This 359-nucleotide part of an RNA from Smittium mucronatum belongs to the Rfam family "Eukaryotic large subunit ribosomal RNA".
RNA sequence: CGGUUGAUGGCCAAGCUUUUUUGACCAGAAUUUAUUCUGGUUAAAGGGUCAACAUCGGUUGUUUAUGACUAGAAGGGAUUUUUACCAGUUGAUGUGGGAAAUGUAGGAAGUUUAGCCGGAAUUUAUUCCAGUUAGAUUUUUGUUAUAGACCCACGCAGAUUGGUUUCGAGCUCGAUAGUCGUGGCGACCGAGGAAUGCAGUGUGUUCUCGGCGAAUUGCUUAGAUGUAUUGUAGAAUUAUCUGGGCCUAGACAGCAUUGCUGACUAGAUCUGUUAUUUUAUAUAUAAGCUGGGUAAUUUGACCAAAAAACACUUUGGAUGUUGGCGAAAAGGCAUCAAUCGACCCGUCUUGAAACACGG
Numbered sequence: 001c002g003g004u005u006g007a008u009g010g011c012c013a014a015g016c017u018u019u020u021u022u023g024a025c026c027a028g029a030a031u032u033u034a035u036u037c038u039g040g041u042u043a044a045a046g047g048g049u050c051a052a053c054a055u056c057g058g059u060u061g062u063u064u065a066u067g068a069c070u071a072g073a074a075g076g077g078a079u080u081u082u083u084a085c086c087a088g089u090u091g092a093u094g095u096g097g098g099a100a101a102u103g104u105a106g107g108a109a110g111u112u113u114a115g116c117c118g119g120a121a122u123u124u125a126u127u128c129c130a131g132u133u134a135g136a137u138u139u140u141u142g143u144u145a146u147a148g149a150c151c152c153a154c155g156c157a158g159a160u161u162g163g164u165u166u167c168g169a170g171c172u173c174g175a176u177a178g179u180c181g182u183g184g185c186g187a188c189c190g191a192g193g194a195a196u197g198c199a200g201u202g203u204g205u206u207c208u209c210g211g212c213g214a215a216u217u218g219c220u221u222a223g224a225u226g227u228a229u230u231g232u233a234g235a236a237u238u239a240u241c242u243g244g245g246c247c248u249a250g251a252c253a254g255c256a257u258u259g260c261u262g263a264c265u266a267g268a269u270c271u272g273u274u275a276u277u278u279u280a281u282a283u284a285u286a287a288g289c290u291g292g293g294u295a296a297u298u299u300g301a302c303c304a305a306a307a308a309a310c311a312c313u314u315u316g317g318a319u320g321u322u323g324g325c326g327a328a329a330a331g332g333c334a335u336c337a338a339u340c341g342a343c344c345c346g347u348c349u350u351g352a353a354a355c356a357c358g359g
Stems, first nucleotide, its partner, number of pairs: 001341009011331001017046001020045007050323007344359004
Overview
Lineage of the source: Eukaryota > Opisthokonta > Fungi > Harpellomycetes > Smittium. A search with the family's covariance model found it, with a score of 3161 bits. On this family, see Cannone et al., BMC Bioinformatics 2002: "The comparative RNA web (CRW) site: an online database of comparative sequence and structure information for ribosomal, intron, and other RNAs".